[Rfam]
RNA: Small nucleolar RNA snoR74
RNA sequence: AAAAAAGCAGGGGUCUGUUGCCUCUGUGAACGGACCUCUCGUAAACAUCAGGGACAUCAAUCUCAUUGUUAUUGGGUGAACCUCUGCUUGUUGUUUGUGACUGAAGGUUCAGUAAAUGAUGGAACAUUU
Numbered sequence: 001a002a003a004a005a006a007g008c009a010g011g012g013g014u015c016u017g018u019u020g021c022c023u024c025u026g027u028g029a030a031c032g033g034a035c036c037u038c039u040c041g042u043a044a045a046c047a048u049c050a051g052g053g054a055c056a057u058c059a060a061u062c063u064c065a066u067u068g069u070u071a072u073u074g075g076g077u078g079a080a081c082c083u084c085u086g087c088u089u090g091u092u093g094u095u096u097g098u099g100a101c102u103g104a105a106g107g108u109u110c111a112g113u114a115a116a117u118g119a120u121g122g123a124a125c126a127u128u129u
Stems, first nucleotide, its partner, number of pairs: 005048001007046001011037002014034004064121007077111007